The family of this 77-nucleotide RNA sequence from Myotis brandtii is "mir-9229 microRNA precursor family". Pairs were carried over by alignment from the consensus structure, which was predicted with RNAalifold.
[Rfam]
RNA sequence: GAGACACUCUUAUGGGGCAGGAAUUGCUUUAGUGGGGCUUUGGUACUCACUGAGUCUACCCCCUUGAGUGUGUCACU
Numbered sequence: 001g002a003g004a005c006a007c008u009c010u011u012a013u014g015g016g017g018c019a020g021g022a023a024u025u026g027c028u029u030u031a032g033u034g035g036g037g038c039u040u041u042g043g044u045a046c047u048c049a050c051u052g053a054g055u056c057u058a059c060c061c062c063c064u065u066g067a068g069u070g071u072g073u074c075a076c077u
Stems, first nucleotide, its partner, number of pairs: 001076001003074005009068004014062004019057001021056002029053008037044002